Description:
This 369-nucleotide RNA sequence from Sphingomonas adhaesiva belongs to the Rfam family "Alphaproteobacteria transfer-messenger RNA". Bacterial tmRNA, also known as 10Sa RNA or SsrA, is named for its dual tRNA and mRNA-like properties. The match comes from Rfam's covariance-model search (207 bits). Rfam links the family to the GO term RNA catabolic process. The base pairs follow the family's consensus structure, which is taken from published work. NCBI's taxonomy places the organism under Bacteria, Pseudomonadati, Alphaproteobacteria, Sphingomonadaceae, Sphingomonas. The literature on the family includes a 1997 paper in RNA by Felden et al., "Probing the structure of the Escherichia coli 10Sa RNA (tmRNA)".

RNA sequence: GGCCUUUGCGUUCGCGCGCGCGGCCCCUAUAUGUGGUCGUGCCGGGUUCCACCCGGCUAUGGCGAUAAACCAUGGCGUAGAAUAGAUGCAGCGGACCCGGGGGCAGUACCCGGCGGCUCCACCAUCUGCGCCGCAUGGCCGGCGCGUUACACGCGCGACGGCGGCGGCGUAGCUGACGGGGCCGAACCAGGAUCGACGUGUAUUGAAAGGCGCCGUCUUCGCUCGGAAUGGGACCACCGCAACGGCCCAUUACACAAGUGCCAACGAUAACGAAGCACUCGCGAUGGCGGCGUAACUGAUGGCCUAACGGCCUGACGUUACACCAAAAUAGCGCGGUUGGACCCCACCGGGCAACAGAAGGGGAUUCCA
Numbered sequence: 001g002g003c004c005u006u007u008g009c010g011u012u013c014g015c016g017c018g019c020g021c022g023g024c025c026c027c028u029a030u031a032u033g034u035g036g037u038c039g040u041g042c043c044g045g046g047u048u049c050c051a052c053c054c055g056g057c058u059a060u061g062g063c064g065a066u067a068a069a070c071c072a073u074g075g076c077g078u079a080g081a082a083u084a085g086a087u088g089c090a091g092c093g094g095a096c097c098c099g100g101g102g103g104c105a106g107u108a109c110c111c112g113g114c115g116g117c118u119c120c121a122c123c124a125u126c127u128g129c130g131c132c133g134c135a136u137g138g139c140c141g142g143c144g145c146g147u148u149a150c151a152c153g154c155g156c157g158a159c160g161g162c163g164g165c166g167g168c169g170u171a172g173c174u175g176a177c178g179g180g181g182c183c184g185a186a187c188c189a190g191g192a193u194c195g196a197c198g199u200g201u202a203u204u205g206a207a208a209g210g211c212g213c214c215g216u217c218u219u220c221g222c223u224c225g226g227a228a229u230g231g232g233a234c235c236a237c238c239g240c241a242a243c244g245g246c247c248c249a250u251u252a253c254a255c256a257a258g259u260g261c262c263a264a265c266g267a268u269a270a271c272g273a274a275g276c277a278c279u280c281g282c283g284a285u286g287g288c289g290g291c292g293u294a295a296c297u298g299a300u301g302g303c304c305u306a307a308c309g310g311c312c313u314g315a316c317g318u319u320a321c322a323c324c325a326a327a328a329u330a331g332c333g334c335g336g337u338u339g340g341a342c343c344c345c346a347c348c349g350g351g352c353a354a355c356a357g358a359a360g361g362g363g364a365u366u367c368c369a
Base pairs, nucleotide, nucleotide: 041057042056043055044054045053061223062222063221064220065219072216073215074214075213076212077211078210087202088201089200091199092198093197097113098112099111100110101109114184115183116182117181118180119179120178224239225238226237229249230248231247234245235244334349335348336347337346340368345363